The family of this 88-nucleotide sequence from Rhizomicrobium sp. SCGC AG-212-E05 is "Glycine riboswitch aptamer". The pairing is the family consensus, mapped onto this sequence. NCBI's taxonomy places the organism under Bacteria, Pseudomonadota, Micropepsales, Micropepsaceae, Rhizomicrobium. Gene Ontology term of the family: glycine biosynthetic process. It scores 70 bits against the family's covariance model. The family has 44 seed sequences and 9,425 matches in Rfam 15.1.

[Rfam]
Nucleotides: 088
Base pairs, nucleotide, nucleotide: 008081009080010079011078012077013076020033021032022031023030035068036067037066038064039063042062043061044060048056049055
Number, partner (000 for none) and nucleotide at each position: 001000c002000g003000a004000u005000c006000c007000c008081u009080c010079g011078c012077g013076g014000g015000a016000g017000a018000g019000a020033g021032c022031a023030g024000u025000u026000a027000a028000a029000a030023u031022u032021g033020c034000c035068g036067c037066c038064g039063a040000a041000g042062g043061a044060g045000c046000a047000a048056c049055c050000g051000c052000c053000c054000c055049g056048g057000a058000a059000a060044c061043u062042c063039u064038c065000a066037g067036g068035c069000a070000a071000a072000a073000g074000g075000a076013c077012c078011g079010c080009g081008a082000u083000c084000g085000g086000g087000u088000g